[Rfam]
RNA sequence: AAGUCGGUAUUCUAACUUAGAAACUGAACUAGAAUAUUAUUAAAUAAUUUAAUAUUUAAGUUUAGGCUAUUCGACUUAUAUCCUAAUGGGGAAUAAGAACGGAGG
Numbered sequence: 001a002a003g004u005c006g007g008u009a010u011u012c013u014a015a016c017u018u019a020g021a022a023a024c025u026g027a028a029c030u031a032g033a034a035u036a037u038u039a040u041u042a043a044a045u046a047a048u049u050u051a052a053u054a055u056u057u058a059a060g061u062u063u064a065g066g067c068u069a070u071u072c073g074a075c076u077u078a079u080a081u082c083c084u085a086a087u088g089g090g091g092a093a094u095a096a097g098a099a100c101g102g103a104g105g
Base pairs, nucleotide, nucleotide: 002030003029004027005026006025007024008023010022011021012020013019072101073100075097076096077095078094079093081092082091083090
This 105-nucleotide RNA from Clostridium homopropionicum belongs to the Rfam family "pan motif".